About this RNA
This 64-nucleotide RNA belongs to the Rfam family "RAGATH-18 RNA". It is annotated as a small RNA.

RNA sequence: UCUGUGGAGAGUCGUAACAAACUAGAGUAGUAGAAAUACAAAAUAGGACUUAUUGAAGCAGAAA
Numbered sequence: 001u002c003u004g005u006g007g008a009g010a011g012u013c014g015u016a017a018c019a020a021a022c023u024a025g026a027g028u029a030g031u032a033g034a035a036a037u038a039c040a041a042a043a044u045a046g047g048a049c050u051u052a053u054u055g056a057a058g059c060a061g062a063a064a
Stems, first nucleotide, its partner, number of pairs: 001062005009051005022046003030039003